[Rfam]
RNA sequence: AGCACAAAUGAUGAUUACAGGGGACUUAAUACUGAAGCGUGAUGUCACUUUUGAGCAGCAACUGAUGUGC
Numbered sequence: 001a002g003c004a005c006a007a008a009u010g011a012u013g014a015u016u017a018c019a020g021g022g023g024a025c026u027u028a029a030u031a032c033u034g035a036a037g038c039g040u041g042a043u044g045u046c047a048c049u050u051u052u053g054a055g056c057a058g059c060a061a062c063u064g065a066u067g068u069g070c
Stems, first nucleotide, its partner, number of pairs: 002070005

Annotation: The family of this 70-nucleotide RNA from Opisthocomus hoazin is "Small nucleolar RNA SNORD82". By type it is a C/D-box small nucleolar RNA. Pairs were carried over by alignment from the consensus structure, which was predicted with PFOLD. Rfam describes the family as follows. snoRNA U82 or Z25 is found in both humans and mice.